This 105-nucleotide sequence from Canis lupus belongs to the Rfam family "mir-8834 microRNA precursor family". Its family is annotated with RISC complex and miRNA-mediated post-transcriptional gene silencing in the Gene Ontology. The match comes from Rfam's covariance-model search (48 bits). Rfam 15.1 lists 13,926 matches to the family in 17 species.
RNA sequence: AGGAGGUACAACCACAGUGGCAGGGCCAUCUCUGGAGCUCUGGAUUCAGCUCCUGCAGUAACUAUGGAGCUCUCUAUCUGCAGCAUCUGGAUCCUUUGGGGGCAG
Numbered sequence: 001a002g003g004a005g006g007u008a009c010a011a012c013c014a015c016a017g018u019g020g021c022a023g024g025g026c027c028a029u030c031u032c033u034g035g036a037g038c039u040c041u042g043g044a045u046u047c048a049g050c051u052c053c054u055g056c057a058g059u060a061a062c063u064a065u066g067g068a069g070c071u072c073u074c075u076a077u078c079u080g081c082a083g084c085a086u087c088u089g090g091a092u093c094c095u096u097u098g099g100g101g102g103c104a105g
Stems, first nucleotide, its partner, number of pairs: 002097005009089002019078002022075004028071001030069005036063001040058003